[Rfam]
RNA sequence: CAGGAUACCCUUUGACCCUCUUUAGUUCAACCAAAUGAACUAAAAUUUCAAAAUGGCACAACUUUUUAAAAAUUUAGUUCAUUUGUGUUGAACUAAUGAGGGUCAAAGGUACCCUG
Numbered sequence: 001c002a003g004g005a006u007a008c009c010c011u012u013u014g015a016c017c018c019u020c021u022u023u024a025g026u027u028c029a030a031c032c033a034a035a036u037g038a039a040c041u042a043a044a045a046u047u048u049c050a051a052a053a054u055g056g057c058a059c060a061a062c063u064u065u066u067u068a069a070a071a072a073u074u075u076a077g078u079u080c081a082u083u084u085g086u087g088u089u090g091a092a093c094u095a096a097u098g099a100g101g102g103u104c105a106a107a108g109g110u111a112c113c114c115u116g
Base pairs, nucleotide, nucleotide: 002115003114004113006111007110008109010108011107012106013105014104015103016102017101018100019099020098022096023095024094025093026092027091028090029089030088031087032085033084034083035082036081037080038079039078040077041076042075043074
The record is a 116-nucleotide RNA from Brachypodium distachyon, which matches "MIR5070 microRNA precursor family" in Rfam. Pairs were carried over by alignment from the consensus structure, which was predicted with RNAalifold. The family has 2 seed sequences and 266 matches in Rfam 15.1. Taxonomically the source falls in Brachypodium (Eukaryota, Mesangiospermae, Petrosaviidae, commelinids). Clan: MIR2863 microRNA precursor clan. It scores 107 bits against the family's covariance model.